About this RNA
Shown here is a 366-nucleotide RNA from Lacticaseibacillus sharpeae, a member of the family "Bacterial RNase P class B". Ribonuclease P (RNase P) is a ubiquitous endoribonuclease, found in archaea, bacteria and eukarya as well as chloroplasts and mitochondria. Its best characterised activity is the generation of mature 5'-ends of tRNAs by cleaving the 5'-leader elements of precursor-tRNAs. Cellular RNase Ps are ribonucleoproteins. RNA from bacterial RNase Ps retains its catalytic activity in the absence of the protein subunit, i.e. it is a ribozyme. Isolated eukaryotic and archaeal RNase P RNA has not been shown to retain its catalytic function, but is still essential for the catalytic activity of the holoenzyme. Although the archaeal and eukaryotic holoenzyme s have a much greater protein content than the bacterial ones, the RNA cores from all the three lineages are homologous -- helices corresponding to P1, P2, P3, P4, and P10/11 are common to all cellular RNase P RNAs. Yet, there is considerable sequence variation, particularly among the eukaryotic RNAs. A search with the family's covariance model found it, with a score of 319 bits. Lineage of the source: Bacteria > Bacillati > Bacillota > Bacilli > Lacticaseibacillus sharpeae.
[Rfam]
RNA sequence: AACCACGAGUAAUUGCGCCCUAUGUAUGUAGGGUGAGGAAGGUCCAUGCCCGCACAGGCUGCGAUGCCUGUAGUGAUUGCGCCAGGCCCAAUAAGCCUGGGUACCGAGUUAUCGGUAACGGCGACCAAACGCGCUAAGGCUUAUGCUAUGCGCCAGUAGGUCUGAACAGUGCCACAGAGACGAUGCGCAUCGGAAACGGUGCGCCUGGAACGGGUAAACCCCGCAAGCGAGUAACCCAAACUUUGGUAGGGGCGUUUCGCCAUGGUAACUGAACUAACGGCGAAAUAGUGCAUUGCACUAAGAUAGAUGAUUACUAAUGGUCGGUUGUGCCUGACUUCCGACCGGAACAAAACAUGGCCUAUAGAG
Numbered sequence: 001a002a003c004c005a006c007g008a009g010u011a012a013u014u015g016c017g018c019c020c021u022a023u024g025u026a027u028g029u030a031g032g033g034u035g036a037g038g039a040a041g042g043u044c045c046a047u048g049c050c051c052g053c054a055c056a057g058g059c060u061g062c063g064a065u066g067c068c069u070g071u072a073g074u075g076a077u078u079g080c081g082c083c084a085g086g087c088c089c090a091a092u093a094a095g096c097c098u099g100g101g102u103a104c105c106g107a108g109u110u111a112u113c114g115g116u117a118a119c120g121g122c123g124a125c126c127a128a129a130c131g132c133g134c135u136a137a138g139g140c141u142u143a144u145g146c147u148a149u150g151c152g153c154c155a156g157u158a159g160g161u162c163u164g165a166a167c168a169g170u171g172c173c174a175c176a177g178a179g180a181c182g183a184u185g186c187g188c189a190u191c192g193g194a195a196a197c198g199g200u201g202c203g204c205c206u207g208g209a210a211c212g213g214g215u216a217a218a219c220c221c222c223g224c225a226a227g228c229g230a231g232u233a234a235c236c237c238a239a240a241c242u243u244u245g246g247u248a249g250g251g252g253c254g255u256u257u258c259g260c261c262a263u264g265g266u267a268a269c270u271g272a273a274c275u276a277a278c279g280g281c282g283a284a285a286u287a288g289u290g291c292a293u294u295g296c297a298c299u300a301a302g303a304u305a306g307a308u309g310a311u312u313a314c315u316a317a318u319g320g321u322c323g324g325u326u327g328u329g330c331c332u333g334a335c336u337u338c339c340g341a342c343c344g345g346a347a348c349a350a351a352a353c354a355u356g357g358c359c360u361a362u363a364g365a366g
Base pairs, nucleotide, nucleotide: 004366006364007362008315009314010313011312012311013310014309016035017034018033019032020031021030040360041359042358044357045356046355047354048353049231051229052228053227054071055070056069057068058067059066077226078225079224080223081222082100083099084098085097086096087095101119102117103116104115105114106113107112120221121220123162124161125160126159131153132152133151134150138147139146140145169219170218171215172214173213185204186203187202188201189200190199191198192197235251236250237249255285256284257283258282259281260280261279286300287299288298289297290296291295318344319343320342321341322340323339324338